Small nucleolar RNA SNORD115: a 75-nucleotide sequence from Mesocricetus auratus. On this family, see Cavaille et al., Proc Natl Acad Sci U S A 2000: "Identification of brain-specific and imprinted small nucleolar RNA genes exhibiting an unusual genomic organization". Rfam 15.1 lists 3,387 matches to the family in 131 species. NCBI's taxonomy places the organism under Eukaryota, Bilateria, Amniota, Mammalia, Mesocricetus. It scores 42 bits against the family's covariance model.

[Rfam]
Nucleotides: 075
Stems, first nucleotide, its partner, number of pairs: 001075003005069001008066002
Number, partner (000 for none) and nucleotide at each position: 001075g002074g003073g004000c005069a006000u007000a008066u009065g010000g011000u012000g013000a014000u015000g016000a017000a018000u019000g020000a021000a022000a023000g024000u025000c026000a027000a028000u029000a030000a031000g032000a033000g034000a035000a036000g037000u038000g039000a040000u041000g042000a043000c044000a045000c046000a047000a048000a049000a050000a051000u052000c053000a054000u055000a056000a057000u058000a059000a060000c061000a062000u063000u064000a065009c066008a067000c068000u069005u070000a071000g072000u073003c074002c075001c